[Rfam]
RNA sequence: UGUCUAACCCUUAAUAGGUUGGUCUAUAAGGUAUGGCAUAAAAAUCCACUGCGACAUAGAGAUGGGCAUCCAUCUUACUAUCAUGUCGCAGUGGUUACUACCCGAAAGGGUAGUAAGGUAGUCCCGAAAGGGCUGUC
Numbered sequence: 001u002g003u004c005u006a007a008c009c010c011u012u013a014a015u016a017g018g019u020u021g022g023u024c025u026a027u028a029a030g031g032u033a034u035g036g037c038a039u040a041a042a043a044a045u046c047c048a049c050u051g052c053g054a055c056a057u058a059g060a061g062a063u064g065g066g067c068a069u070c071c072a073u074c075u076u077a078c079u080a081u082c083a084u085g086u087c088g089c090a091g092u093g094g095u096u097a098c099u100a101c102c103c104g105a106a107a108g109g110g111u112a113g114u115a116a117g118g119u120a121g122u123c124c125c126g127a128a129a130g131g132g133c134u135g136u137c
Base pairs, nucleotide, nucleotide: 001038002037003036004035009031010030011029012028013027015026016025017024018023046094047093048092049091050090051089052088053087054086055085056084059076060075061074062073063072064071065070096115097114098113099112100111101110102109103108117137118136119135120134121133122132123131124130
The family of this 137-nucleotide RNA is "LOOT RNA".